[Rfam]
RNA sequence: GGGAUAUGAUGAGUGGUCAAAACUCGCAUUAUUGUGAGUUGGGUGUCCGCCCAAGCCUGGUUACGACAUAGGGGCACUCUCAUUGUACCAAUCUGAUCCC
Numbered sequence: 001g002g003g004a005u006a007u008g009a010u011g012a013g014u015g016g017u018c019a020a021a022a023c024u025c026g027c028a029u030u031a032u033u034g035u036g037a038g039u040u041g042g043g044u045g046u047c048c049g050c051c052c053a054a055g056c057c058u059g060g061u062u063a064c065g066a067c068a069u070a071g072g073g074g075c076a077c078u079c080u081c082a083u084u085g086u087a088c089c090a091a092u093c094u095g096a097u098c099c100c
Base pairs, nucleotide, nucleotide: 001100002099003098004097014090015089016088017087023038024037025036026035027034041079042078043077044076045075046074047073058072

This 100-nucleotide sequence from Coptis chinensis belongs to the Rfam family "Small nucleolar RNA Z279/snoR105/snoR108". Its family is annotated with RNA processing and nucleolus in the Gene Ontology. The base pairs follow the family's consensus structure, which was predicted with PFOLD. It scores 73 bits against the family's covariance model. The literature on the family includes a 2002 paper in Curr Biol by Marker et al., "Experimental RNomics: identification of 140 candidates for small non-messenger RNAs in the plant Arabidopsis thaliana". This family includes the plant snoRNAs known as Z279, snoR105 and snoR108.